[Rfam]
RNA sequence: AGGCAACCCCCUUCUUCUUCUGUGAUGUUGAGAUGGGUGGUGUUAAUCUGCUCAUAAAUAAAUUGACUUUUGCUCUUCAGACUUGCUGAUUAUUUCUUGAAGUUGGUCUAGUAAGCUAAAGGACACC
Numbered sequence: 001a002g003g004c005a006a007c008c009c010c011c012u013u014c015u016u017c018u019u020c021u022g023u024g025a026u027g028u029u030g031a032g033a034u035g036g037g038u039g040g041u042g043u044u045a046a047u048c049u050g051c052u053c054a055u056a057a058a059u060a061a062a063u064u065g066a067c068u069u070u071u072g073c074u075c076u077u078c079a080g081a082c083u084u085g086c087u088g089a090u091u092a093u094u095u096c097u098u099g100a101a102g103u104u105g106g107u108c109u110a111g112u113a114a115g116c117u118a119a120a121g122g123a124c125a126c127c
Stems, first nucleotide, its partner, number of pairs: 002044004007040002009037003013033004067121003072116003079109005085103003